[Rfam]
Nucleotides: 058
Base pairs, nucleotide, nucleotide: 009050010049011048012047014045015044026043027042028041029040030039031038
Number, partner (000 for none) and nucleotide at each position: 001000g002000g003000a004000c005000c006000a007000c008000u009050c010049c011048c012047u013000c014045u015044a016000c017000u018000c019000g020000g021000a022000u023000c024000g025000u026043c027042c028041g029040g030039c031038a032000c033000g034000u035000u036000c037000c038031u039030g040029c041028c042027g043026g044015u045014g046000a047012a048011g049010g050009g051000a052000c053000c054000g055000c056000a057000a058000c
This 58-nucleotide sequence from Streptomyces albireticuli belongs to the Rfam family "msiK RNA". Lineage of the source: Bacteria > Bacillati > Kitasatosporales > Streptomycetaceae > Streptomyces. The family's consensus secondary structure is taken from published work.